Source information
The family of this 157-nucleotide RNA from Vulcanibacillus modesticaldus is "glmS glucosamine-6-phosphate activated ribozyme aptamer". Rfam's curators write: This entry contains a glucosamine-6-phosphate activated ribozyme that is found in the mRNA for GlmS. GlmS is an enzyme that uses fructose-6-phosphate and glutamine to generate glucosamine-6-phosphate. The ribozyme catalyses self cleavage of the glmS mRNA that is thought to regulate GlmS activity. For this family Rfam cites "Control of gene expression by a natural metabolite-responsive ribozyme" (Winkler et al., Nature, 2004). By type it is a riboswitch.
RNA sequence: UCUAAAAAUAAAGCGCCUGAACUACUUAUAAAGUAGUUGACGAGGAGAAGGUUUAUCGAGUUGUUCGGCGGAUACCUUCCGGUAGGCAUGAAUACCGUUAAAAUAAAGCUCAAAAGGAAGAGGUGACUCUUCUGACAAAGCUUUAUUGUCAUGUAAU
Numbered sequence: 001u002c003u004a005a006a007a008a009u010a011a012a013g014c015g016c017c018u019g020a021a022c023u024a025c026u027u028a029u030a031a032a033g034u035a036g037u038u039g040a041c042g043a044g045g046a047g048a049a050g051g052u053u054u055a056u057c058g059a060g061u062u063g064u065u066c067g068g069c070g071g072a073u074a075c076c077u078u079c080c081g082g083u084a085g086g087c088a089u090g091a092a093u094a095c096c097g098u099u100a101a102a103a104u105a106a107a108g109c110u111c112a113a114a115a116g117g118a119a120g121a122g123g124u125g126a127c128u129c130u131u132c133u134g135a136c137a138a139a140g141c142u143u144u145a146u147u148g149u150c151a152u153g154u155a156a157u
Stems, first nucleotide, its partner, number of pairs: 020038008047079005056068004080097005102147007116133007